[Rfam]
The family of this 177-nucleotide part of an RNA from Cudoniella acicularis is "Ascomycota telomerase RNA". It scores 138 bits against the family's covariance model. For this family Rfam cites "The common ancestral core of vertebrate and fungal telomerase RNAs" (Qi et al., Nucleic Acids Res, 2013). Clan: Telomerase clan. The pairing is the family consensus, mapped onto this sequence. The family has 4 seed sequences and 475 matches in Rfam 15.1.
RNA sequence: CACACAGUCCCACAUCUUCGCGAUGUUUGCACGCCAUUUCCUCUAACAUCCCAUCUUAAUAGGUGGACGUGUUCGAGAAGUAAAGCGGUUUUUGUUGAUGUCUUUUGUCCGCAAUUCCUGCCCUGCAUGCCUCUCUAUAGGAGGACGUGCAGAGGAAACAUAAAACUAAUCUUAGAG
Numbered sequence: 001c002a003c004a005c006a007g008u009c010c011c012a013c014a015u016c017u018u019c020g021c022g023a024u025g026u027u028u029g030c031a032c033g034c035c036a037u038u039u040c041c042u043c044u045a046a047c048a049u050c051c052c053a054u055c056u057u058a059a060u061a062g063g064u065g066g067a068c069g070u071g072u073u074c075g076a077g078a079a080g081u082a083a084a085g086c087g088g089u090u091u092u093u094g095u096u097g098a099u100g101u102c103u104u105u106u107g108u109c110c111g112c113a114a115u116u117c118c119u120g121c122c123c124u125g126c127a128u129g130c131c132u133c134u135c136u137a138u139a140g141g142a143g144g145a146c147g148u149g150c151a152g153a154g155g156a157a158a159c160a161u162a163a164a165a166c167u168a169a170u171c172u173u174a175g176a177g
Base pairs, nucleotide, nucleotide: 007034008033011029012028014026016025018023040080041077042076043075045073046070047069051066057062097171098170099169100166101165103164104163105162106160107159108158121155122154123152124151125150126149132147134145135144